[Rfam]
RNA: SAM riboswitch aptamer (S box leader)
Organism: Roseburia sp. CAG:45
RNA sequence: CUCUUAUUCAGAGUGAUGGAGAUACAUAGGAUCAAUGAAGUCACGGCAACCCCACAACAUAAGGAAGGUGCCAACCUGAGCGAGCAAGUCGAACAAUAAGAG
Numbered sequence: 001c002u003c004u005u006a007u008u009c010a011g012a013g014u015g016a017u018g019g020a021g022a023u024a025c026a027u028a029g030g031a032u033c034a035a036u037g038a039a040g041u042c043a044c045g046g047c048a049a050c051c052c053c054a055c056a057a058c059a060u061a062a063g064g065a066a067g068g069u070g071c072c073a074a075c076c077u078g079a080g081c082g083a084g085c086a087a088g089u090c091g092a093a094c095a096a097u098a099a100g101a102g
Stems, first nucleotide, its partner, number of pairs: 001102008013044005021033003027080001030077001045072004050068002052064002081091003